[Rfam]
RNA sequence: GAGUGUGUUGACUUGGCGAGUCUAACCGGGUUAUCCGGGAAGGCAUAGGGAAACCGACAUGGCCGCAGCCUUAUGGCGAGGGCCGCCGUGCUCAAGCGCGGGGAGUCAAGUCGACACGACCCGAAUCCGGACGAUCUAUGCGUGGGCAGGGUGAAGCAUGGCGAAAGCUAUGUGGAGGCCCGCUAGGGUUGGUGUCUUACAAUACCCUCCCGUGACUCGCGCAUAGGGGUGAAAGGCCCAUCGAGUCCGGCAACAGCUGGUU
Numbered sequence: 001g002a003g004u005g006u007g008u009u010g011a012c013u014u015g016g017c018g019a020g021u022c023u024a025a026c027c028g029g030g031u032u033a034u035c036c037g038g039g040a041a042g043g044c045a046u047a048g049g050g051a052a053a054c055c056g057a058c059a060u061g062g063c064c065g066c067a068g069c070c071u072u073a074u075g076g077c078g079a080g081g082g083c084c085g086c087c088g089u090g091c092u093c094a095a096g097c098g099c100g101g102g103g104a105g106u107c108a109a110g111u112c113g114a115c116a117c118g119a120c121c122c123g124a125a126u127c128c129g130g131a132c133g134a135u136c137u138a139u140g141c142g143u144g145g146g147c148a149g150g151g152u153g154a155a156g157c158a159u160g161g162c163g164a165a166a167g168c169u170a171u172g173u174g175g176a177g178g179c180c181c182g183c184u185a186g187g188g189u190u191g192g193u194g195u196c197u198u199a200c201a202a203u204a205c206c207c208u209c210c211c212g213u214g215a216c217u218c219g220c221g222c223a224u225a226g227g228g229g230u231g232a233a234a235g236g237c238c239c240a241u242c243g244a245g246u247c248c249g250g251c252a253a254c255a256g257c258u259g260g261u262u
Base pairs, nucleotide, nucleotide: 005117006116007115008114009113010112011111012110013109014108015107016106017105020044021043022042023041026038027037028036029035048055049054061084062083063082064081068077069076070075087100088099089098090097120260121259123257127250128249129248130247131246132245136226137225138224139223140222141221142220143219144218145217146216147214149181150180151179152178156173157172158171159170160169161168162167186211187210188209191207192206194205195204228238229237230236
A member of the RNA family "Archaeal large subunit ribosomal RNA" from Salinarchaeum sp. IM2453, 262 nucleotides of a longer RNA. It scores 2849 bits against the family's covariance model.